[Rfam]
RNA sequence: AGUAGUAACAGCAUAAGUGGGGUGAGAAUCCCCACCGCCGAAGGGGCAAGGGUUCCACAGCAAUGUUCGUCAGCUGUGGGUAAGCCGGUCCUAACUCUCGAGUUAACCUCUUUGAGAGGAAAGGGAAACAGGUUAAUAUUCCUGUGCCGUUCAAAUACAUGUGGCAACACAAGGUCAAUUUCUGACGCUUUGGGAUAAGUUUUGUACUUUUGUCUGAGUAUUCAAGCUUAUAAGUCCGAGGAGAAUUGUAAUAAUGAGAAUCGGAUGAAAGAGUAAUGAGUUUUCCUUUAGGAGAAUUUAACUGAUUCCUUGAGCCCGUGAAAAGGGAAUUGACAUGGAUUUUGAACGUCCGUACCCAGAACCGACACUGGUGCCCCUAGGUGAGUAUCCUAAGGCGUAG
Dot-bracket structure: ................((((((.......))))))((((....((((..((...((((((...((.....)).))))))......(((.((...((((((((.......)).))))))....))...(((((........)))))..((((((((.........................(((...((((.((((..((((..(((((........)))))....((((.....(((((.....(((.....))).....))))).....))))...........(....)........))))...)))).)))).........))).............)))))))).)))..)).....((......)).)))).((((.......)))).))))...
RNA: Archaeal large subunit ribosomal RNA, nucleotides 1351 to 1750
Organism: Methanococcus voltae